[Rfam]
RNA sequence: CCCGCCACUGUGCUUGUCUGUAAGAGUGACUGUGUACUGUCCAGAGGAGGCUCAGAGUGACCCAGCUCUAGGAAGCAGAACUGCCCAGUUUAAUGGGUAACUCUGUGCCGAAAGGUCUGGGACAUGU
Numbered sequence: 001c002c003c004g005c006c007a008c009u010g011u012g013c014u015u016g017u018c019u020g021u022a023a024g025a026g027u028g029a030c031u032g033u034g035u036a037c038u039g040u041c042c043a044g045a046g047g048a049g050g051c052u053c054a055g056a057g058u059g060a061c062c063c064a065g066c067u068c069u070a071g072g073a074a075g076c077a078g079a080a081c082u083g084c085c086c087a088g089u090u091u092a093a094u095g096g097g098u099a100a101c102u103c104u105g106u107g108c109c110g111a112a113a114g115g116u117c118u119g120g121g122a123c124a125u126g127u
Stems, first nucleotide, its partner, number of pairs: 005047002008044003018032001020030001021028002062120004066115002069112001071109002076105004084097003